Record summary:
Shown here is a 98-nucleotide RNA sequence from Papaver nudicaule, a member of the family "Small nucleolar RNA snoR31/Z110/Z27". The match comes from Rfam's covariance-model search (69 bits). Taxonomically the source falls in Papaver (Eukaryota, Streptophyta, Spermatophyta, Papaveroideae). Rfam 15.1 lists 571 matches to the family in 198 species. Pairs were carried over by alignment from the consensus structure, which was predicted with PFOLD. Rfam describes the family as follows. This family contains several related snoRNAs including R31, Z27 and Z110.
RNA sequence: AACAUCAAAUGAUGAAUUCUGAAGUAUUAUCUUAGGACACCUUCUGACACAGUGUAAAAACUGUGUAUGAGAAUGAUCUUUCAAGUUCUGAUGAUGUU
Numbered sequence: 001a002a003c004a005u006c007a008a009a010u011g012a013u014g015a016a017u018u019c020u021g022a023a024g025u026a027u028u029a030u031c032u033u034a035g036g037a038c039a040c041c042u043u044c045u046g047a048c049a050c051a052g053u054g055u056a057a058a059a060a061c062u063g064u065g066u067a068u069g070a071g072a073a074u075g076a077u078c079u080u081u082c083a084a085g086u087u088c089u090g091a092u093g094a095u096g097u098u
Stems, first nucleotide, its partner, number of pairs: 001098007045051002